[Rfam]
This 88-nucleotide RNA from Halanaerobium salsuginis belongs to the Rfam family "pan motif". It scores 46 bits against the family's covariance model. Rfam classes the family as a cis-regulatory element.

RNA sequence: GGGACGGAACCUUAAUUGAGAGCUGUACCCAUUAGACUGUUAAAUAUAAUUGGGUGAUCCACCUGGAUCAAAUGACCGGGAUGGGAGG
Dot-bracket structure: (((((((...(........)..)))).)))............................((((((((.((....))))))).)))....